RNA sequence: AUCGAGGGAUGCCGUGAGGCCUCGGCCCGGUGGCGAUCGACCCUGGCGCACCUUCCCCGGCGCCAGGUUCGCUUCUCCGGGCUGGGACCUGACGGCAUCAGUUUUCUCUG
Number, nucleotide and partner (000 for none) at each position: 001a000002u000003c000004g000005a000006g000007g000008g000009a000010u097011g096012c095013c094014g093015u092016g000017a000018g089019g088020c000021c086022u085023c084024g083025g082026c081027c080028c079029g078030g077031u000032g075033g074034c000035g000036a000037u000038c071039g070040a069041c000042c067043c066044u065045g064046g063047c062048g061049c060050a000051c000052c000053u000054u000055c000056c000057c000058c000059g000060g049061c048062g047063c046064c045065a044066g043067g042068u000069u040070c039071g038072c000073u000074u033075c032076u000077c030078c029079g028080g027081g026082c025083u024084g023085g022086g021087a000088c019089c018090u000091g000092a015093c014094g013095g012096c011097a010098u000099c000100a000101g000102u000103u000104u000105u000106c000107u000108c000109u000110g000
RNA: mraW RNA
Organism: Kibdelosporangium phytohabitans